[Rfam]
RNA: Streptomyces RNA 1601
RNA sequence: GUCGACCGGCCGGGCACCUGUGUCCGGCCACAAGUGGAGGCUCCGAUCUCCCACCUGGCCGUCCUCCGGGACGGCGGGUCACCGGUCAGGCGGCCGCGCCACGAGUGCGGCAGGCCCGAUGUGCGCCCCGCGUCCACGCGGCGGUGCUCCGGUAGUCCAGGAGCCCCGCGUGUGAUCGUCCGGGGCAUUUUUC
Numbered sequence: 001g002u003c004g005a006c007c008g009g010c011c012g013g014g015c016a017c018c019u020g021u022g023u024c025c026g027g028c029c030a031c032a033a034g035u036g037g038a039g040g041c042u043c044c045g046a047u048c049u050c051c052c053a054c055c056u057g058g059c060c061g062u063c064c065u066c067c068g069g070g071a072c073g074g075c076g077g078g079u080c081a082c083c084g085g086u087c088a089g090g091c092g093g094c095c096g097c098g099c100c101a102c103g104a105g106u107g108c109g110g111c112a113g114g115c116c117c118g119a120u121g122u123g124c125g126c127c128c129c130g131c132g133u134c135c136a137c138g139c140g141g142c143g144g145u146g147c148u149c150c151g152g153u154a155g156u157c158c159a160g161g162a163g164c165c166c167c168g169c170g171u172g173u174g175a176u177c178g179u180c181c182g183g184g185g186c187a188u189u190u191u192u193c
Base pairs, nucleotide, nucleotide: 004087005086006085007084008083009082012025013024026080027079028078029077031057032056034054035053036052037051038049039048058075059074060073061072062071063070064069089116090115091114092111094110095109096108097107098106125186126185127184128183129182130181131178132177137174138173139172141169142168143167144166146164147163148162149161150160